[Rfam]
RNA sequence: GGGGCUAUGUGUGACUGGCGAACGCGGAAAUAACCGUGAGGGAGCACAUAGCGACGUUGAUAGCCGUUCGCCUGGGCUGAGGUA
Numbered sequence: 001g002g003g004g005c006u007a008u009g010u011g012u013g014a015c016u017g018g019c020g021a022a023c024g025c026g027g028a029a030a031u032a033a034c035c036g037u038g039a040g041g042g043a044g045c046a047c048a049u050a051g052c053g054a055c056g057u058u059g060a061u062a063g064c065c066g067u068u069c070g071c072c073u074g075g076g077c078u079g080a081g082g083u084a
Stems, first nucleotide, its partner, number of pairs: 004052009015041002017072005024037004061079005
RNA: ZMP/ZTP riboswitch aptamer (pfl RNA motif)